[Rfam]
RNA sequence: AGCUCUGUGGCGCAGUGGAAGCGCGCCGGGCUCAUAACCCGGAGGUCCUCCGAUCGAAACGGAGCAGAGCUA
Dot-bracket structure: (((((((..((((.......)))).(((((.......))))).....(((((.......)))))))))))).
RNA: tRNA
Organism: Hypoxylon sp. CI-4A